[Rfam]
RNA sequence: CCAGUUGGCUGGGCAGCCGCGCUCCGCAAGUGUCGAAAGGCCGCGGGGGGAGGAAAGUCCGGGCUCCACGGAAACACGGUGCCGGAUAACGUCCGGCGGGGGCGACCCCAGGGAAAGUGCCACAGAGAGCAGACCGCCUUCGUUCUCGAAGGUAAGGGUGAAAGGGUGGGGUAAGAGCCCACCGCGGACAUGGCGACAUGGACGGCACGGCAAACCCCACCGGGAGCAAGACCGAAUAGGGAUGACGCGAACGGCGCAAGCCGUUCAGCCCGUUUCCGGGCCGGUCAUCCGGGUGGGUUGCACGAGGCCGGGCGCAAGUCCGGUCCCAGAUGAAUGGCUGCCACGUUCCGACGUCAGUCGGAGCCAUACAGAACCCGGCUUACAGGCCAACUGGCGUU
Numbered sequence: 001c002c003a004g005u006u007g008g009c010u011g012g013g014c015a016g017c018c019g020c021g022c023u024c025c026g027c028a029a030g031u032g033u034c035g036a037a038a039g040g041c042c043g044c045g046g047g048g049g050g051a052g053g054a055a056a057g058u059c060c061g062g063g064c065u066c067c068a069c070g071g072a073a074a075c076a077c078g079g080u081g082c083c084g085g086a087u088a089a090c091g092u093c094c095g096g097c098g099g100g101g102g103c104g105a106c107c108c109c110a111g112g113g114a115a116a117g118u119g120c121c122a123c124a125g126a127g128a129g130c131a132g133a134c135c136g137c138c139u140u141c142g143u144u145c146u147c148g149a150a151g152g153u154a155a156g157g158g159u160g161a162a163a164g165g166g167u168g169g170g171g172u173a174a175g176a177g178c179c180c181a182c183c184g185c186g187g188a189c190a191u192g193g194c195g196a197c198a199u200g201g202a203c204g205g206c207a208c209g210g211c212a213a214a215c216c217c218c219a220c221c222g223g224g225a226g227c228a229a230g231a232c233c234g235a236a237u238a239g240g241g242a243u244g245a246c247g248c249g250a251a252c253g254g255c256g257c258a259a260g261c262c263g264u265u266c267a268g269c270c271c272g273u274u275u276c277c278g279g280g281c282c283g284g285u286c287a288u289c290c291g292g293g294u295g296g297g298u299u300g301c302a303c304g305a306g307g308c309c310g311g312g313c314g315c316a317a318g319u320c321c322g323g324u325c326c327c328a329g330a331u332g333a334a335u336g337g338c339u340g341c342c343a344c345g346u347u348c349c350g351a352c353g354u355c356a357g358u359c360g361g362a363g364c365c366a367u368a369c370a371g372a373a374c375c376c377g378g379c380u381u382a383c384a385g386g387c388c389a390a391c392u393g394g395c396g397u398u
Base pairs, nucleotide, nucleotide: 001394002393003392004391005390006389007388008387009386010385011383012342013341014340015339016338017337018336020050022048023047024046025045026044027043055381056380057379059378060377061376062375063374064226065225066224067223073275074274077222078221079220080219081218082096083095084094085093086092097111098109099108100107101106112217113216117215118214119211120210121209134157135156136153137152138151139150140149141148142147165183166182167181168180169179170178184206185204186203189200190199191198192197230299231298232297233296240290241289242288243287244286245285268281269280270279271278306325307324308323309322310321311320312319313318